[Rfam]
This 110-nucleotide RNA from Roseburia intestinalis belongs to the Rfam family "THF (Tetrahydrofolate) riboswitch aptamer".
Tetrahydrofolate (THF) riboswitch was first reported for Ames et al. as an RNA motif in 5' untranslated (5'-UTR)regions of folate transport and biosynthesis genes in Firmicutes genomes.
Nucleotides: 110
Stems, first nucleotide, its partner, number of pairs: 001110005010097003014093006020086003026057002029055002032052005040103003044099001061083009
Number, partner (000 for none) and nucleotide at each position: 001110a002109g003108c004107a005106g006000a007000g008000u009000a010097g011096a012095a013000c014093u015092c016091u017090g018089u019088g020086c021085g022084u023000u024000a025000a026057g027056u028000g029055c030054c031000a032052u033051g034050u035049g036048a037000a038000c039000a040103g041102g042101g043000a044099g045000u046000u047000g048036u049035c050034a051033c052032a053000c054030g055029g056027a057026c058000g059000a060000a061083a062082a063081a064080c065079a066078a067077a068076a069075g070000c071000g072000c073000u074000g075069c076068u077067u078066u079065u080064g081063u082062u083061u084022g085021c086020g087000g088019u089018a090017c091016a092015g093014a094000a095012u096011u097010c098000g099044c100000a101042u102041c103040c104000c105000g106005c107004u108003g109002c110001u